Shown here is a 129-nucleotide RNA from Ancylobacter pratisalsi, a member of the family "Glycine riboswitch aptamer". The organism belongs to Ancylobacter, within Bacteria.
RNA sequence: CGAUCUGGAGAGAGGCAUCGGCGCCGCCUGUUUGGCGUCAGGAUGCCCACCGAAGGGGAAGCCCGGGAAGGCCAGACGGCAUGUCGCCGUUCCGUCCCGGGGCGAGCUCUCAGGUACCGCGACAGAUUG
Numbered sequence: 001c002g003a004u005c006u007g008g009a010g011a012g013a014g015g016c017a018u019c020g021g022c023g024c025c026g027c028c029u030g031u032u033u034g035g036c037g038u039c040a041g042g043a044u045g046c047c048c049a050c051c052g053a054a055g056g057g058g059a060a061g062c063c064c065g066g067g068a069a070g071g072c073c074a075g076a077c078g079g080c081a082u083g084u085c086g087c088c089g090u091u092c093c094g095u096c097c098c099g100g101g102g103c104g105a106g107c108u109c110u111c112a113g114g115u116a117c118c119g120c121g122a123c124a125g126a127u128u129g
Stems, first nucleotide, its partner, number of pairs: 001129007014047006049115003052111002056109003062102002